[Rfam]
RNA sequence: UAUAAAGAUUUUCUUCGAACCGCCGGACCUGCAAGAUAUAUAUCCAUGGUACGGCGGUCGAUGGGUACAGCGGGAAACUGAUGUGCCUCCCGUGAUUGGAAAGGAGAGAAUAUCAAAGACCU
Numbered sequence: 001u002a003u004a005a006a007g008a009u010u011u012u013c014u015u016c017g018a019a020c021c022g023c024c025g026g027a028c029c030u031g032c033a034a035g036a037u038a039u040a041u042a043u044c045c046a047u048g049g050u051a052c053g054g055c056g057g058u059c060g061a062u063g064g065g066u067a068c069a070g071c072g073g074g075a076a077a078c079u080g081a082u083g084u085g086c087c088u089c090c091c092g093u094g095a096u097u098g099g100a101a102a103g104g105a106g107a108g109a110a111u112a113u114c115a116a117a118g119a120c121c122u
Stems, first nucleotide, its partner, number of pairs: 003116001006113001011108006019058007027050003035044003063088007071080003089099002